[Rfam]
RNA sequence: CCACGAGGAUGAUAGACUUGAACUCUCUCUUUCUGUAUUGGCAGUGGAGAUAACCUCACUGGCUGAGUGGC
Number, nucleotide and partner (000 for none) at each position: 001c070002c069003a068004c067005g000006a000007g000008g000009a000010u000011g000012a000013u000014a000015g000016a000017c000018u000019u000020g000021a000022a000023c000024u000025c000026u000027c000028u000029c000030u000031u000032u000033c000034u000035g000036u000037a000038u000039u000040g000041g000042c000043a000044g000045u000046g000047g000048a000049g000050a000051u000052a000053a000054c000055c000056u000057c000058a000059c000060u000061g000062g000063c000064u000065g000066a000067g004068u003069g002070g001071c000
RNA: Small nucleolar RNA SNORD26